[Rfam]
RNA: Soft rot Enterobacteriaceae Rev 39 5'UTR
Nucleotides: 292
Base pairs, nucleotide, nucleotide: 001027002026003025004024007021011016032070033069034068036066037065039062040061042059043058044054080248081247082246084240085239092231094229095228096227100226101225102224104114105113106112116136117135118134119133120132122131123130124129137156138155140153141152142151143150159185164181165180167178168177191222192221193220194219195218196217197216198215199214200213202211203210204209249281250280251279252278253277254276257270258269259268
Number, partner (000 for none) and nucleotide at each position: 001027u002026u003025g004024u005000g006000u007021u008000a009000a010000c011016a012000g013000c014000a015000a016011u017000a018000u019000c020000u021007a022000u023000g024004g025003u026002a027001a028000c029000u030000c031000u032070u033069u034068a035000g036066g037065u038000a039062u040061u041000c042059c043058u044054u045000c046000g047000a048000a049000c050000a051000u052000g053000a054044a055000g056000u057000c058043a059042g060000a061040a062039a063000g064000a065037a066036c067000a068034u069033a070032a071000a072000a073000u074000g075000a076000c077000a078000g079000u080248c081247c082246u083000u084240c085239u086000a087000c088000g089000a090000g091000u092231g093000a094229u095228u096227a097000g098000c099000c100226u101225g102224g103000u104114c105113g106112u107000g108000a109000u110000u111000a112106g113105c114104g115000u116136g117135g118134u119133g120132g121000u122131g123130a124129u125000u126000a127000u128000u129124a130123u131122c132120c133119c134118a135117c136116c137156g138155u139000g140153c141152g142151g143150g144000g145000c146000u147000g148000c149000a150143c151142u152141u153140g154000g155138a156137c157000g158000a159185g160000g161000a162000a163000a164181g165180g166000c167178u168177u169000a170000a171000a172000a173000a174000u175000c176000a177168a178167g179000c180165c181164u182000u183000a184000a185159c186000g187000a188000a189000c190000u191222a192221a193220g194219a195218c196217c197216c198215c199214c200213g201000c202211a203210c204209c205000g206000a207000a208000a209204g210203g211202u212000c213200c214199g215198g216197g217196g218195g219194u220193u221192u222191u223000u224102u225101u226100a227096u228095a229094a230000c231092u232000g233000a234000a235000a236000a237000a238000c239085a240084g241000a242000a243000a244000u245000g246082g247081g248080g249281a250280g251279c252278a253277g254276a255000u256000a257270a258269u259268g260000a261000g262000u263000u264000u265000u266000a267000g268259c269258a270257u271000a272000a273000a274000a275000u276254u277253c278252u279251g280250u281249u282000u283000c284000c285000c286000u287000c288000g289000a290000u291000c292000u